[Rfam]
RNA sequence: UCGAAGUUUCAUCUACAAUGGAAAUUUUUGUCUUAGUGUAUACGAAUCGUUGAAAACAAAGUAGCAUACCCCAUGCUGCUUUAGCAAGACCUGGGGUAUUGCACUUUU
Numbered sequence: 001u002c003g004a005a006g007u008u009u010c011a012u013c014u015a016c017a018a019u020g021g022a023a024a025u026u027u028u029u030g031u032c033u034u035a036g037u038g039u040a041u042a043c044g045a046a047u048c049g050u051u052g053a054a055a056a057c058a059a060a061g062u063a064g065c066a067u068a069c070c071c072c073a074u075g076c077u078g079c080u081u082u083a084g085c086a087a088g089a090c091c092u093g094g095g096g097u098a099u100u101g102c103a104c105u106u107u108u
Stems, first nucleotide, its partner, number of pairs: 008022005058107005066099004071094003075090001077086001
The record is a 108-nucleotide RNA sequence from Musa balbisiana, which matches "Plastid-psbA-1 3UTR RNA" in Rfam. The match comes from Rfam's covariance-model search (57 bits). Plastid psbA-1 is a non-coding RNA (ncRNA) present in plastids. It was identified in inverted repeat sequences in the 3 prime untranslate region (3UTR) of photosystem II quinone-binding protein (psbA). Taxonomically the source falls in Musa (Eukaryota, Mesangiospermae, Liliopsida, Zingiberales).